[Rfam]
RNA sequence: GUGACAGAAGAGAGUGAGCACACAUGGCAUUUUCUUGCAUGAAAGUUCAUGCUUGAAGCUAUGCGUGCUCACCCUCUAUCUGUCAC
Numbered sequence: 001g002u003g004a005c006a007g008a009a010g011a012g013a014g015u016g017a018g019c020a021c022a023c024a025u026g027g028c029a030u031u032u033u034c035u036u037g038c039a040u041g042a043a044a045g046u047u048c049a050u051g052c053u054u055g056a057a058g059c060u061a062u063g064c065g066u067g068c069u070c071a072c073c074c075u076c077u078a079u080c081u082g083u084c085a086c
Stems, first nucleotide, its partner, number of pairs: 001086008010076003014072008023063003
The family of this 86-nucleotide RNA from Morus notabilis is "mir-156 microRNA precursor family". The base pairs follow the family's consensus structure, which was predicted with PFOLD. From the family's description: This family represents the plant microRNA (miRNA) precursor mir-156. The match comes from Rfam's covariance-model search (86 bits). Taxonomically the source falls in Morus (Eukaryota, Streptophytina, Embryophyta, Rosales). A reference for the family is Reinhart et al. (2002), "MicroRNAs in plants", Genes Dev.